The record is a 121-nucleotide RNA sequence from Leptothoe spongobia, which matches "Guanidine-I riboswitch aptamer" in Rfam. NCBI's taxonomy places the organism under Bacteria, Bacillati, Cyanobacteriota, Nodosilineales, Leptothoe spongobia. It scores 84 bits against the family's covariance model. For this family Rfam cites "New RNA motifs suggest an expanded scope for riboswitches in bacterial genetic control" (Barrick et al., Proc Natl Acad Sci U S A, 2004). Rfam links the family to the GO term regulation of gene expression.

Nucleotides: 121
Base pairs, nucleotide, nucleotide: 007061008060009059010058011057012056015051016050020048021047022045023042024041025040026039028037062094063093064092065091066090067089068088069087070086071085072084073083096116098119102114103113104112
Number, partner (000 for none) and nucleotide at each position: 001000a002000a003000g004000c005000u006000u007061u008060g009059c010058a011057u012056c013000u014000a015051g016050g017000g018000u019000u020048c021047c022045a023042a024041c025040u026039u027000u028037g029000c030000c031000a032000g033000u034000u035000g036000g037028c038000u039026a040025a041024g042023u043000g044000u045022u046000c047021g048020g049000u050016c051015c052000g053000a054000g055000a056012g057011a058010u059009g060008c061007a062094g063093c064092c065091a066090g067089a068088a069087a070086a071085c072084g073083u074000a075000u076000u077000a078000a079000u080000a081000g082000a083073g084072c085071g086070u087069u088068u089067u090066c091065u092064g093063g094062u095000u096116c097000a098119c099000g100000g101000a102114g103113g104112g105000a106000u107000a108000a109000a110000a111000g112104c113103c114102c115000g116096g117000g118000a119098g120000a121000a